[Rfam]
RNA sequence: AAACACCUCAAAGAAUCGCGAACGAAGCGAAACAUACUAAAAGUGAGCUAAUUUUUGUAAAUUAGUUAGACUUUUUAAAGAUUAUCUUUUUUUUAUUUUAUAAAAGAAAGAUAGGUGCUUUGGGGAAAGUCCUCGGAUACUAAGGCAGAAAGUGUCGCCUUUAGUAUAGGGUCAUAUUAAAGUUCAAUAAUCCUGCGAAGAAUUUUAAUCUUUGAUUAAAAUUAUAGCUAUAUGGGUAGAUGAAUAUUUAAUAUUGAUCAUCAUAGCAAAGUUAUGCGAUUGUAUCAAAUCAUUAUUUAUUAUAGGAGAAAUUGUGAGACUCGUAUAUACUGUAUACUUGUCUCUGUUCGAAUAUAAUACUGAUAUAACACAACGAGGCUUACUCUUGAGAUGUU
Numbered sequence: 001a002a003a004c005a006c007c008u009c010a011a012a013g014a015a016u017c018g019c020g021a022a023c024g025a026a027g028c029g030a031a032a033c034a035u036a037c038u039a040a041a042a043g044u045g046a047g048c049u050a051a052u053u054u055u056u057g058u059a060a061a062u063u064a065g066u067u068a069g070a071c072u073u074u075u076u077a078a079a080g081a082u083u084a085u086c087u088u089u090u091u092u093u094u095a096u097u098u099u100a101u102a103a104a105a106g107a108a109a110g111a112u113a114g115g116u117g118c119u120u121u122g123g124g125g126a127a128a129g130u131c132c133u134c135g136g137a138u139a140c141u142a143a144g145g146c147a148g149a150a151a152g153u154g155u156c157g158c159c160u161u162u163a164g165u166a167u168a169g170g171g172u173c174a175u176a177u178u179a180a181a182g183u184u185c186a187a188u189a190a191u192c193c194u195g196c197g198a199a200g201a202a203u204u205u206u207a208a209u210c211u212u213u214g215a216u217u218a219a220a221a222u223u224a225u226a227g228c229u230a231u232a233u234g235g236g237u238a239g240a241u242g243a244a245u246a247u248u249u250a251a252u253a254u255u256g257a258u259c260a261u262c263a264u265a266g267c268a269a270a271g272u273u274a275u276g277c278g279a280u281u282g283u284a285u286c287a288a289a290u291c292a293u294u295a296u297u298u299a300u301u302a303u304a305g306g307a308g309a310a311a312u313u314g315u316g317a318g319a320c321u322c323g324u325a326u327a328u329a330c331u332g333u334a335u336a337c338u339u340g341u342c343u344c345u346g347u348u349c350g351a352a353u354a355u356a357a358u359a360c361u362g363a364u365a366u367a368a369c370a371c372a373a374c375g376a377g378g379c380u381u382a383c384u385c386u387u388g389a390g391a392u393g394u395u
Stems, first nucleotide, its partner, number of pairs: 002395004007390005014281006023122006045093003127381003131378004144156004157172005174254004179248002182245004193239004223232003283365005

This 395-nucleotide RNA from Anaeromyces robustus belongs to the Rfam family "RNase MRP". Rfam 15.1 lists 3,510 matches to the family in 2,315 species. From the family's description: RNase MRP is an enzymatically active ribonucleoprotein with two distinct roles in eukaryotes. In mitochondria it plays a direct role in the initiation of mitochondrial DNA replication. Taxonomically the source falls in Anaeromyces (Eukaryota, Neocallimastigomycota, Neocallimastigomycetes, Neocallimastigaceae). Rfam classes the family as a ribozyme.